[Rfam]
RNA sequence: CUACCGAACUCUGGAGAGCGGCACCCGUCAUCGCUUGCAUGCAUGAUGAGCGUGUCCACCGAAGGGGCGCGCGAGGCCGGUAAGGUUUCGUAAUCUCUCAGGUAUCGAGGACAGAGGGGUCAUC
Numbered sequence: 001c002u003a004c005c006g007a008a009c010u011c012u013g014g015a016g017a018g019c020g021g022c023a024c025c026c027g028u029c030a031u032c033g034c035u036u037g038c039a040u041g042c043a044u045g046a047u048g049a050g051c052g053u054g055u056c057c058a059c060c061g062a063a064g065g066g067g068c069g070c071g072c073g074a075g076g077c078c079g080g081u082a083a084g085g086u087u088u089c090g091u092a093a094u095c096u097c098u099c100a101g102g103u104a105u106c107g108a109g110g111a112c113a114g115a116g117g118g119g120u121c122a123u124c
Stems, first nucleotide, its partner, number of pairs: 009116005020056004058103003061099002065097003